Notes
Actinobacteria sRNA Ms_IGR-5: a 244-nucleotide RNA sequence from Thermasporomyces composti. The organism belongs to Thermasporomyces, within Bacteria. Rfam classes the family as a small RNA. Pairs were carried over by alignment from the consensus structure.

RNA sequence: ACACGGGAAAGGAGGUGAUCCAGCGCAUGCAUAGCUCUGGGACUCGUGAGGUGGCUGUCCGUUAGCCGCCGUCCACACGUUGAGGACCGACUGCCGAUCACCGGCGCGUCCCGACCGCGUUCGUCGCUGAGAAAGACCGUCCUUUCCACUGAACGCCGACGGCGGCCGGCGAAUCCCAGGCAGCCACCCGGCCCGCGGGCGCUGGACUAGUCCCCCAGCCUUGCCAGCCCGCGGGCUGCCUCAU
Numbered sequence: 001a002c003a004c005g006g007g008a009a010a011g012g013a014g015g016u017g018a019u020c021c022a023g024c025g026c027a028u029g030c031a032u033a034g035c036u037c038u039g040g041g042a043c044u045c046g047u048g049a050g051g052u053g054g055c056u057g058u059c060c061g062u063u064a065g066c067c068g069c070c071g072u073c074c075a076c077a078c079g080u081u082g083a084g085g086a087c088c089g090a091c092u093g094c095c096g097a098u099c100a101c102c103g104g105c106g107c108g109u110c111c112c113g114a115c116c117g118c119g120u121u122c123g124u125c126g127c128u129g130a131g132a133a134a135g136a137c138c139g140u141c142c143u144u145u146c147c148a149c150u151g152a153a154c155g156c157c158g159a160c161g162g163c164g165g166c167c168g169g170c171g172a173a174u175c176c177c178a179g180g181c182a183g184c185c186a187c188c189c190g191g192c193c194c195g196c197g198g199g200c201g202c203u204g205g206a207c208u209a210g211u212c213c214c215c216c217a218g219c220c221u222u223g224c225c226a227g228c229c230c231g232c233g234g235g236c237u238g239c240c241u242c243a244u
Base pairs, nucleotide, nucleotide: 014059015058016057017056019054060171061170062169063168065166066165068163069162070161071160073158189238190237191236192235193234194233195232196231197230198229199228200227201219202218203217204216205215